[Rfam]
RNA sequence: UAUCUCCAAGGAAUAGUCUUCUUCGCUCAUAAUUUCCCGCGAAGGACAGAAAGGAUUCUGACUGUUUUUAACAAAAAACGGUUUCGAUUUCAUAAUUAAAAAAGGACAGG
Numbered sequence: 001u002a003u004c005u006c007c008a009a010g011g012a013a014u015a016g017u018c019u020u021c022u023u024c025g026c027u028c029a030u031a032a033u034u035u036c037c038c039g040c041g042a043a044g045g046a047c048a049g050a051a052a053g054g055a056u057u058c059u060g061a062c063u064g065u066u067u068u069u070a071a072c073a074a075a076a077a078a079c080g081g082u083u084u085c086g087a088u089u090u091c092a093u094a095a096u097u098a099a100a101a102a103a104g105g106a107c108a109g110g
Base pairs, nucleotide, nucleotide: 021044022043023042024041025040026039061082062081063080064079065078066077067076
Dot-bracket structure: ....................((((((............))))))................(((((((........)))))))............................

A member of the RNA family "gltS RNA" from Vibrio tapetis, 110 nucleotides long.
Lineage of the source: Bacteria > Pseudomonadati > Vibrionaceae > Vibrio > Vibrio tapetis.
Pairs were carried over by alignment from the consensus structure, which is taken from published work.